Rfam assigns this 109-nucleotide RNA sequence to the family "Actinomyces-1 RNA".
It is one of the family's seed sequences.
It is annotated as a small RNA.
[Rfam]
RNA sequence: ACUGCCGCCGAACGGUGCGGGGCGUGAGGGUUGGGGAACCCCGCGACCGCUUCGGAUCGAGAUCGGUGCGGGUCUUAGGGAGCCCGUCCUGGUCGCUUCGGUGAAGGAG
Numbered sequence: 001a002c003u004g005c006c007g008c009c010g011a012a013c014g015g016u017g018c019g020g021g022g023c024g025u026g027a028g029g030g031u032u033g034g035g036g037a038a039c040c041c042c043g044c045g046a047c048c049g050c051u052u053c054g055g056a057u058c059g060a061g062a063u064c065g066g067u068g069c070g071g072g073u074c075u076u077a078g079g080g081a082g083c084c085c086g087u088c089c090u091g092g093u094c095g096c097u098u099c100g101g102u103g104a105a106g107g108a109g
Base pairs, nucleotide, nucleotide: 006103007102008101009100010099011098012097013059014058015057016056018054019053020052021051022050023049024048028041029040030039031038032037061094062093063092065089066088069086070085071084072083073082